[Rfam]
RNA sequence: GGCGAUGUAAGAUGCUAUGAAGGGUGAUUCCCGGAAAUGGACGCCAUGGGAACCCUGGAGCAAGAGGCGUAACCGGCUUACAUUUUU
Numbered sequence: 001g002g003c004g005a006u007g008u009a010a011g012a013u014g015c016u017a018u019g020a021a022g023g024g025u026g027a028u029u030c031c032c033g034g035a036a037a038u039g040g041a042c043g044c045c046a047u048g049g050g051a052a053c054c055c056u057g058g059a060g061c062a063a064g065a066g067g068c069g070u071a072a073c074c075g076g077c078u079u080a081c082a083u084u085u086u087u
Stems, first nucleotide, its partner, number of pairs: 001087002004084008013062003022056003028052004039074002041070005
This 87-nucleotide RNA from Candidatus Psychracetigena formicireducens belongs to the Rfam family "c-di-GMP-II-GAG riboswitch aptamer". Rfam links the family to the GO terms regulation of gene expression and cyclic-di-GMP binding. Pairs were carried over by alignment from the consensus structure, which is taken from published work. Clan: c-di-GMP_II riboswitch clan. The organism belongs to Candidatus Psychracetigena, within Bacteria.